[Rfam]
RNA sequence: GUUUGAAAAAGGAAAACCUGAUCGAAAGACAGGGACUCAAAGCCACAAGUCUAAGGUUCAGUACUAUGAUGGUUGGGCUGCCAAA
Numbered sequence: 001g002u003u004u005g006a007a008a009a010a011g012g013a014a015a016a017c018c019u020g021a022u023c024g025a026a027a028g029a030c031a032g033g034g035a036c037u038c039a040a041a042g043c044c045a046c047a048a049g050u051c052u053a054a055g056g057u058u059c060a061g062u063a064c065u066a067u068g069a070u071g072g073u074u075g076g077g078c079u080g081c082c083a084a085a
Base pairs, nucleotide, nucleotide: 012038013037017033018032019031020030022029023028041079042078043077044076046075047074048073049070050069051068056064057063
RNA: c-di-GMP-I riboswitch aptamer